[Rfam]
RNA sequence: GUGUGAGGUAGAGGCGCGAAGUCAAAGAGUAUGUAUCAUGAGAUUCGGACAUCUGUGAGUGAUACAAAAAGGGGACUUUGCCGAAGCGGGUAUGCGUGUCCAGCGCUGCCUGGCUGGGGGUGCAUUUAAAAAAUGCAUCACUGUCACUCGGGAAACCGCAGUGGAGAACUACUGACUCU
Numbered sequence: 001g002u003g004u005g006a007g008g009u010a011g012a013g014g015c016g017c018g019a020a021g022u023c024a025a026a027g028a029g030u031a032u033g034u035a036u037c038a039u040g041a042g043a044u045u046c047g048g049a050c051a052u053c054u055g056u057g058a059g060u061g062a063u064a065c066a067a068a069a070a071g072g073g074g075a076c077u078u079u080g081c082c083g084a085a086g087c088g089g090g091u092a093u094g095c096g097u098g099u100c101c102a103g104c105g106c107u108g109c110c111u112g113g114c115u116g117g118g119g120g121u122g123c124a125u126u127u128a129a130a131a132a133a134u135g136c137a138u139c140a141c142u143g144u145c146a147c148u149c150g151g152g153a154a155a156c157c158g159c160a161g162u163g164g165a166g167a168a169c170u171a172c173u174g175a176c177u178c179u
Base pairs, nucleotide, nucleotide: 007173008172009171010170011169016081017080018079019078020077021076022075023074032066033065034064035063036062037061038060039059085115086114087113089111090110094106095105096104116142117141119139120138121137122136123135124134125133126132144164145163146162147161148160